[Rfam]
mir-9058 microRNA precursor family: a 97-nucleotide RNA sequence from Equus caballus. It scores 80 bits against the family's covariance model. NCBI's taxonomy places the organism under Eukaryota, Deuterostomia, Sarcopterygii, Laurasiatheria, Equus. The family has 2 seed sequences and 2,090 matches in Rfam 15.1.
RNA sequence: GUGGUUGCCGUGUGGGUGCUCUCUACUAGUUCUGUGCAGAGGCUUUUGCUGAGGCUGCUGUGAGACUGUAGAAUUUCCCCCUGGGCCACAGAGCCGG
Numbered sequence: 001g002u003g004g005u006u007g008c009c010g011u012g013u014g015g016g017u018g019c020u021c022u023c024u025a026c027u028a029g030u031u032c033u034g035u036g037c038a039g040a041g042g043c044u045u046u047u048g049c050u051g052a053g054g055c056u057g058c059u060g061u062g063a064g065a066c067u068g069u070a071g072a073a074u075u076u077c078c079c080c081c082u083g084g085g086c087c088a089c090a091g092a093g094c095c096g097g
Stems, first nucleotide, its partner, number of pairs: 002096005007086003010082001014080003018076001022072005028067002031065003036061004041056006